[Rfam]
RNA sequence: CUUGGCGUUCGGCUUGUUCUUCAUGAUGCCAUUACCCACCGCGUGAAGAAGGUGGGUUUUGCCCAGGCCAGUACCGCCAUA
Numbered sequence: 001c002u003u004g005g006c007g008u009u010c011g012g013c014u015u016g017u018u019c020u021u022c023a024u025g026a027u028g029c030c031a032u033u034a035c036c037c038a039c040c041g042c043g044u045g046a047a048g049a050a051g052g053u054g055g056g057u058u059u060u061g062c063c064c065a066g067g068c069c070a071g072u073a074c075c076g077c078c079a080u081a
Base pairs, nucleotide, nucleotide: 005042006041007040009038011036012035016032017031021028051078052077053076054075056074057073061072062071
The record is an 81-nucleotide RNA sequence from Ferrimonas marina, which matches "antisense RNA of dnaA mRNA" in Rfam. On this family, see Dadzie et al., PLoS One 2013: "Identification and characterization of a cis-encoded antisense RNA associated with the replication process of Salmonella enterica serovar Typhi". It scores 61 bits against the family's covariance model.